[Rfam]
Nucleotides: 078
Base pairs, nucleotide, nucleotide: 002077003076004075005074
Number, partner (000 for none) and nucleotide at each position: 001000a002077u003076g004075c005074c006000c007000g008000c009000a010000u011000a012000u013000g014000a015000u016000g017000a018000g019000a020000a021000c022000u023000a024000c025000g026000u027000u028000g029000g030000u031000a032000g033000g034000g035000a036000c037000a038000u039000c040000u041000g042000a043000g044000a045000g046000g047000g048000u049000g050000a051000u052000g053000a054000a055000u056000g057000c058000c059000a060000a061000c062000g063000u064000a065000u066000c067000u068000g069000a070000g071000c072000c073000g074005g075004g076003c077002a078000c
The record is a 78-nucleotide RNA from Neopipo cinnamomea, which matches "Small nucleolar RNA SNORD74" in Rfam.
By type it is a C/D-box small nucleolar RNA.
Rfam links the family to the GO terms nucleolus and RNA processing.
Its Rfam clan is "SNORD74 clan".
Lineage of the source: Eukaryota > Archosauria > Saurischia > Neognathae > Neopipo.
A search with the family's covariance model found it, with a score of 71 bits.
For this family Rfam cites "Purified box C/D snoRNPs are able to reproduce site-specific 2'-O-methylation of target RNA in vitro" (Galardi et al., Mol Cell Biol, 2002).